[Rfam]
RNA sequence: AGAACAUCUCGUAGGGCGCGAGAUGGGUAAAAUAAAAAAUGCCCACCGAGA
Numbered sequence: 001a002g003a004a005c006a007u008c009u010c011g012u013a014g015g016g017c018g019c020g021a022g023a024u025g026g027g028u029a030a031a032a033u034a035a036a037a038a039a040u041g042c043c044c045a046c047c048g049a050g051a
Stems, first nucleotide, its partner, number of pairs: 006024006014044004
Rfam assigns this 51-nucleotide RNA sequence to the family "6A RNA". It is annotated as a small RNA.